[Rfam]
RNA: terC RNA
Organism: Blastomonas sp. AAP25
RNA sequence: GUAGCGGGCCGGGCCCCUCUGGCGACGAAUGAUGCCUUGCACAUUCGGCGUGAUGUCGGACCGCUACG
Number, nucleotide and partner (000 for none) at each position: 001g000002u000003a000004g000005c000006g062007g061008g000009c059010c058011g057012g056013g000014c000015c000016c000017c000018u000019c000020u000021g000022g051023c050024g049025a000026c047027g046028a045029a044030u043031g042032a000033u000034g000035c000036c000037u000038u000039g000040c000041a000042c031043a030044u029045u028046c027047g026048g000049c024050g023051u022052g000053a000054u000055g000056u012057c011058g010059g009060a000061c007062c006063g000064c000065u000066a000067c000068g000